[Rfam]
RNA sequence: UUCCGCGAAACAUAUUUUGGUAUGUUGUCCUUCGUAUCUAUAAACUGGUACAGCACUGGAUACUAUGUCCCUUGUGGACUUGAUUGGGGGGUCGUGAUGGCUCUAUCAAUAGAAUCGGUUGUAAAACCGAUUCCCAAAUAAUUUUAUUUGGGAAUCUAACCUCAGAAUAGUUUAUAGUUAAUAAAGGACGGUCAGACUAUAGGUGCUAAGGUCUUUAGUCGAGAGGGAAACAGCCCAGAACAAAAAUUAAGGUCCCUAAAUACUACUAAGUGAAAUUAAGGUAGUCCAUAAAAUUACACAACCAUUCGGUGGGCUUGGAAGCAGCCAUCCGUUAAUGAAAGCGUAAUAGCUCAAUGGUCUGUAAUAAUAAAUUUUAAGGGCACCGACAAUGUAUCGGGUCUAAGUAGUAUACCGAGAUUUUGUCUCAAUGAAAUUUCAUUGAAGGGUAGCGGAACACUCAGGACAUGGUUGAAGGAUAGGGUUUCCUUAUCUGGACAUAACUGAGGAGAGAAU
Numbered sequence: 001u002u003c004c005g006c007g008a009a010a011c012a013u014a015u016u017u018u019g020g021u022a023u024g025u026u027g028u029c030c031u032u033c034g035u036a037u038c039u040a041u042a043a044a045c046u047g048g049u050a051c052a053g054c055a056c057u058g059g060a061u062a063c064u065a066u067g068u069c070c071c072u073u074g075u076g077g078a079c080u081u082g083a084u085u086g087g088g089g090g091g092u093c094g095u096g097a098u099g100g101c102u103c104u105a106u107c108a109a110u111a112g113a114a115u116c117g118g119u120u121g122u123a124a125a126a127c128c129g130a131u132u133c134c135c136a137a138a139u140a141a142u143u144u145u146a147u148u149u150g151g152g153a154a155u156c157u158a159a160c161c162u163c164a165g166a167a168u169a170g171u172u173u174a175u176a177g178u179u180a181a182u183a184a185a186g187g188a189c190g191g192u193c194a195g196a197c198u199a200u201a202g203g204u205g206c207u208a209a210g211g212u213c214u215u216u217a218g219u220c221g222a223g224a225g226g227g228a229a230a231c232a233g234c235c236c237a238g239a240a241c242a243a244a245a246a247u248u249a250a251g252g253u254c255c256c257u258a259a260a261u262a263c264u265a266c267u268a269a270g271u272g273a274a275a276u277u278a279a280g281g282u283a284g285u286c287c288a289u290a291a292a293a294u295u296a297c298a299c300a301a302c303c304a305u306u307c308g309g310u311g312g313g314c315u316u317g318g319a320a321g322c323a324g325c326c327a328u329c330c331g332u333u334a335a336u337g338a339a340a341g342c343g344u345a346a347u348a349g350c351u352c353a354a355u356g357g358u359c360u361g362u363a364a365u366a367a368u369a370a371a372u373u374u375u376a377a378g379g380g381c382a383c384c385g386a387c388a389a390u391g392u393a394u395c396g397g398g399u400c401u402a403a404g405u406a407g408u409a410u411a412c413c414g415a416g417a418u419u420u421u422g423u424c425u426c427a428a429u430g431a432a433a434u435u436u437c438a439u440u441g442a443a444g445g446g447u448a449g450c451g452g453a454a455c456a457c458u459c460a461g462g463a464c465a466u467g468g469u470u471g472a473a474g475g476a477u478a479g480g481g482u483u484u485c486c487u488u489a490u491c492u493g494g495a496c497a498u499a500a501c502u503g504a505g506g507a508g509a510g511a512a513u
Stems, first nucleotide, its partner, number of pairs: 001454006011024005026191001027189006036182001038177009052162002057158003061154001063152001195220005201214004225236003240423004245419003251413003260410007280384003284381004289376005301358005307331003312326003337352001341350002424444002426441006455508001457505005465498003474492008
This 513-nucleotide part of an RNA belongs to the Rfam family "Bacterial large subunit ribosomal RNA".